[Rfam]
RNA sequence: UUUGGCGUUAAAUCGUGAAGGAAGCGAACCUGCAGUAGGUUCGAGUCGAGCGAAAGCGAGACAACGUUGCCAGCGGCAACGGCCCGCAGGGCGAGGCCAGAGGCCGAGUCAUCCUGCACGACCCACCA
Number, nucleotide and partner (000 for none) at each position: 001u000002u000003u000004g000005g000006c000007g000008u000009u000010a000011a000012a000013u000014c000015g119016u118017g117018a000019a115020g114021g113022a000023a000024g000025c000026g000027a000028a000029c000030c000031u000032g000033c093034a000035g000036u000037a000038g000039g000040u088041u000042c086043g085044a000045g000046u000047c058048g057049a000050g000051c000052g000053a000054a000055a000056g000057c048058g047059a000060g000061a000062c000063a000064a000065c081066g080067u079068u078069g077070c076071c000072a000073g000074c000075g000076g070077c069078a068079a067080c066081g065082g000083c000084c000085c043086g042087c000088a040089g000090g000091g000092c000093g033094a000095g000096g000097c000098c000099a000100g000101a000102g000103g000104c000105c000106g000107a000108g000109u000110c000111a000112u000113c021114c020115u019116g000117c017118a016119c015120g000121a000122c000123c000124c000125a000126c000127c000128a000
RNA: RtT RNA
Organism: Paramixta manurensis